The family of this 65-nucleotide sequence from Ignelater luminosus is "mir-33 microRNA precursor family". Gene Ontology terms of the family: gene silencing by miRNA and RISC complex. The family has 73 seed sequences and 1,467 matches in Rfam 15.1.
RNA sequence: CUGAGGUGCAUUGUAGUUGCAUUGCAUGUCAUCUAACAGUGCAGUGUUGCUCCAGUGCAACUUGG
Numbered sequence: 001c002u003g004a005g006g007u008g009c010a011u012u013g014u015a016g017u018u019g020c021a022u023u024g025c026a027u028g029u030c031a032u033c034u035a036a037c038a039g040u041g042c043a044g045u046g047u048u049g050c051u052c053c054a055g056u057g058c059a060a061c062u063u064g065g
Stems, first nucleotide, its partner, number of pairs: 001065004006061001007059007015051002019047001021045007
Lineage of the source: Eukaryota > Arthropoda > Pancrustacea > Altocrustacea > Ignelater.